[Rfam]
RNA sequence: CUGUGGUGCAUUGUAGUUGCAUUGCAUGUUACGCUAACACGGUGCAAUGGAUCUGCUUUGCAGCACAG
Numbered sequence: 001c002u003g004u005g006g007u008g009c010a011u012u013g014u015a016g017u018u019g020c021a022u023u024g025c026a027u028g029u030u031a032c033g034c035u036a037a038c039a040c041g042g043u044g045c046a047a048u049g050g051a052u053c054u055g056c057u058u059u060g061c062a063g064c065a066c067a068g
Base pairs, nucleotide, nucleotide: 001068002067003066004065006064007062008061009060010059013056014055015054016053021048022047023046024045025044026043027042

The family of this 68-nucleotide RNA from Lates calcarifer is "mir-33 microRNA precursor family".
The organism belongs to Lates, within Eukaryota.
Pairs were carried over by alignment from the consensus structure, which was predicted with PFOLD.